Shown here is a 144-nucleotide RNA sequence, a member of the family "RT-14 RNA". It is annotated as a small RNA. Rfam's curators put it in the seed alignment.
RNA sequence: CUCUAAUAUCAAUUGAGAUUAUAUAUUUUAUGGAAUAUAUACAGUAAUGUAUUAGAUAUUAAAGAGGUUUGCCCCAUCCUAAUUUAGGUAAAUAUGUAUCAAUAAAAUGUGUAUUAGUAGAUUUUUUGAAAACAUACAUUUUAU
Numbered sequence: 001c002u003c004u005a006a007u008a009u010c011a012a013u014u015g016a017g018a019u020u021a022u023a024u025a026u027u028u029u030a031u032g033g034a035a036u037a038u039a040u041a042c043a044g045u046a047a048u049g050u051a052u053u054a055g056a057u058a059u060u061a062a063a064g065a066g067g068u069u070u071g072c073c074c075c076a077u078c079c080u081a082a083u084u085u086a087g088g089u090a091a092a093u094a095u096g097u098a099u100c101a102a103u104a105a106a107a108u109g110u111g112u113a114u115u116a117g118u119a120g121a122u123u124u125u126u127u128g129a130a131a132a133c134a135u136a137c138a139u140u141u142u143a144u
Stems, first nucleotide, its partner, number of pairs: 003055007013047002020041009078088004102144011114132001120127002